[Rfam]
RNA sequence: GUGGUGUCCGGCGAUGGAUCUCCGCCGAGACCGCCCCGUAGGGGGUUGUCUGAACCGCCCCAACCCUGGGGCUGAUGGCUCCUUUCCCUGA
Numbered sequence: 001g002u003g004g005u006g007u008c009c010g011g012c013g014a015u016g017g018a019u020c021u022c023c024g025c026c027g028a029g030a031c032c033g034c035c036c037c038g039u040a041g042g043g044g045g046u047u048g049u050c051u052g053a054a055c056c057g058c059c060c061c062a063a064c065c066c067u068g069g070g071g072c073u074g075a076u077g078g079c080u081c082c083u084u085u086c087c088c089u090g091a
Stems, first nucleotide, its partner, number of pairs: 010026004016082003020078002057072006
RNA: Fluoride riboswitch aptamer (crcB RNA motif)